[Rfam]
HIV gag stem loop 3 (GSL3): an 85-nucleotide sequence.
The family's consensus secondary structure was predicted with PFOLD.
It scores 42 bits against the family's covariance model.
It is annotated as a cis-regulatory element.
This family consists of several HIV gag stem loop 3 (GSL3) sequences. GSL3 is known to direct specific packaging of HIV-1 genomic RNA. Deletion of GSL3 leads to decreases in both viral RNA packaging and dimerisation.
The literature on the family includes a 2003 paper in Virology by Rong et al., "Deletion of stem-loop 3 is compensated by second-site mutations within the Gag protein of human immunodeficiency virus type 1".
RNA sequence: GGUAAAGUGAAUACAUAAAUGAAUUAAUGAAAACAAAAAGAAAUGAUAAACAGGGAGCUAGACAUGUUAGCAUUUAAACUUUGCC
Numbered sequence: 001g002g003u004a005a006a007g008u009g010a011a012u013a014c015a016u017a018a019a020u021g022a023a024u025u026a027a028u029g030a031a032a033a034c035a036a037a038a039a040g041a042a043a044u045g046a047u048a049a050a051c052a053g054g055g056a057g058c059u060a061g062a063c064a065u066g067u068u069a070g071c072a073u074u075u076a077a078a079c080u081u082u083g084c085c
Stems, first nucleotide, its partner, number of pairs: 001085008
Dot-bracket structure: ((((((((.....................................................................))))))))